The family of this 121-nucleotide RNA sequence from Nisaea acidiphila is "TPP riboswitch aptamer (THI element)". NCBI's taxonomy places the organism under Bacteria, Pseudomonadati, Pseudomonadota, Alphaproteobacteria, Nisaea. A search with the family's covariance model found it, with a score of 69 bits.
RNA sequence: CCUUAUCACCCGGGGGGUCCCGACAAGGGGCUGAGAUAUUGCUGGCUCUCCGGAGCAGCGCAAUGACCCGACGAACCUGAUCCAGUUCAUACUGGCGUAGGGACGGUGCGCGCUUCGGGGC
Numbered sequence: 001c002c003u004u005a006u007c008a009c010c011c012g013g014g015g016g017g018u019c020c021c022g023a024c025a026a027g028g029g030g031c032u033g034a035g036a037u038a039u040u041g042c043u044g045g046c047u048c049u050c051c052g053g054a055g056c057a058g059c060g061c062a063a064u065g066a067c068c069c070g071a072c073g074a075a076c077c078u079g080a081u082c083c084a085g086u087u088c089a090u091a092c093u094g095g096c097g098u099a100g101g102g103a104c105g106g107u108g109c110g111c112g113c114u115u116c117g118g119g120g121c
Stems, first nucleotide, its partner, number of pairs: 007108004011070004017031005038064005076101004082095004